[Rfam]
RNA sequence: AGAAAGGUUAGAGGUUGCGGGUGCUAAAAGUCACCGUCUGGAGAUAGUAAAGCGAUCUAUGAAUGACGGUAAAAGGAGUACUCGCCGAAGUGACACGUAGCUUUAUGACAUGUCGCUGGGUCUUAGUUUAAUAAGCUGAGAACCACUGCUUUUUGUUUGACAAAAGCGAAAGCGCUACCGUACGG
Numbered sequence: 001a002g003a004a005a006g007g008u009u010a011g012a013g014g015u016u017g018c019g020g021g022u023g024c025u026a027a028a029a030g031u032c033a034c035c036g037u038c039u040g041g042a043g044a045u046a047g048u049a050a051a052g053c054g055a056u057c058u059a060u061g062a063a064u065g066a067c068g069g070u071a072a073a074a075g076g077a078g079u080a081c082u083c084g085c086c087g088a089a090g091u092g093a094c095a096c097g098u099a100g101c102u103u104u105a106u107g108a109c110a111u112g113u114c115g116c117u118g119g120g121u122c123u124u125a126g127u128u129u130a131a132u133a134a135g136c137u138g139a140g141a142a143c144c145a146c147u148g149c150u151u152u153u154u155g156u157u158u159g160a161c162a163a164a165a166g167c168g169a170a171a172g173c174g175c176u177a178c179c180g181u182a183c184g185g
Base pairs, nucleotide, nucleotide: 007179009177010176011175017085018084019083020082021081022080023079024078025077033070034069035068036067037066038065089117090116091115092114093113094112095111097109098108100106118144119143121141122140123139124138125137126136127135128134147168148167149166150165151164152163

Rfam assigns this 185-nucleotide RNA sequence from Ligilactobacillus saerimneri to the family "Lysine riboswitch aptamer". Its family is annotated with lysine biosynthetic process in the Gene Ontology.